Annotation
The record is a 255-nucleotide RNA from Corymbia citriodora, which matches "A. fumigatus sRNA Afu_309" in Rfam. A reference for the family is Jochl et al. (2008), "Small ncRNA transcriptome analysis from Aspergillus fumigatus suggests a novel mechanism for regulation of protein synthesis", Nucleic Acids Res. Rfam 15.1 lists 663 matches to the family in 646 species. The match comes from Rfam's covariance-model search (123 bits). The family's RNA type in Rfam is small RNA. The source organism's lineage runs through Eukaryota, Euphyllophyta, Pentapetalae, malvids and Corymbia citriodora.
[Rfam]
RNA sequence: UUCAAAAUUUUGAUCUGGUUCAGCGGUCCUGGCGCGCCUCCGGGCGCUGUCGGUUGACUGCUGCGACAGUUCGACGACCCAUGGGAUCUUCACAGUUGCAAUGGAGCAAAUCCGGUCGACAGGUCUCAGACUGAUCGCGGCGCACACCUUGUAGUUCUUCGUGAGCUCGGUGUGUUGCCCUGGCGCUAUAUUCCAAGUCGUUCCUGAGCCCGUCGGGCAUUGAGGGUUGGGAAAAACCAUAGCUUGCCUACAUUC
Numbered sequence: 001u002u003c004a005a006a007a008u009u010u011u012g013a014u015c016u017g018g019u020u021c022a023g024c025g026g027u028c029c030u031g032g033c034g035c036g037c038c039u040c041c042g043g044g045c046g047c048u049g050u051c052g053g054u055u056g057a058c059u060g061c062u063g064c065g066a067c068a069g070u071u072c073g074a075c076g077a078c079c080c081a082u083g084g085g086a087u088c089u090u091c092a093c094a095g096u097u098g099c100a101a102u103g104g105a106g107c108a109a110a111u112c113c114g115g116u117c118g119a120c121a122g123g124u125c126u127c128a129g130a131c132u133g134a135u136c137g138c139g140g141c142g143c144a145c146a147c148c149u150u151g152u153a154g155u156u157c158u159u160c161g162u163g164a165g166c167u168c169g170g171u172g173u174g175u176u177g178c179c180c181u182g183g184c185g186c187u188a189u190a191u192u193c194c195a196a197g198u199c200g201u202u203c204c205u206g207a208g209c210c211c212g213u214c215g216g217g218c219a220u221u222g223a224g225g226g227u228u229g230g231g232a233a234a235a236a237c238c239a240u241a242g243c244u245u246g247c248c249u250a251c252a253u254u255c
Base pairs, nucleotide, nucleotide: 012125013124014123015122016121017120018067019066020065021063022062023061025059026058027057028056029053030052031051032050033049034047035046036045037044038043075118076117077116078115079114082109084107087104088103137178138177139176143174144173145172146171147170148169153167154166155165156164157163182248183247184246185243186242187241188240189239198232199231200228203226204225205224208218209217210216211215
Dot-bracket structure: ...........((((((((((((.((((((((((((((....))))).)))))..)))).))).))).......(((((..(.(..((..............))..).)....))))).))))))...........(((...((((((....(((((.....))))).)))))).)))...((((((((........(((..(((..((((...)))).....))).)..))......)))))..))).......